[Rfam]
RNA sequence: CGAGAACCAUUUCAAUCAAGUAGUAUAGUGAUUGAAAUGGUUCUCGC
Dot-bracket structure: ((((((((((((((((((..........)))))))))))))))))).
Numbered sequence: 001c002g003a004g005a006a007c008c009a010u011u012u013c014a015a016u017c018a019a020g021u022a023g024u025a026u027a028g029u030g031a032u033u034g035a036a037a038u039g040g041u042u043c044u045c046g047c
Stems, first nucleotide, its partner, number of pairs: 001046018

The record is a 47-nucleotide RNA from Rheum palmatum, which matches "Plastid-ccsA-ndhD-2 3UTR RNA" in Rfam. The family's consensus secondary structure was predicted with LocARNA. The family's RNA type in Rfam is cis-regulatory element. The organism belongs to Rheum, within Eukaryota. On this family, see Richter et al., Plant Commun 2023: "Retrograde signaling in plants: A critical review focusing on the GUN pathway and beyond".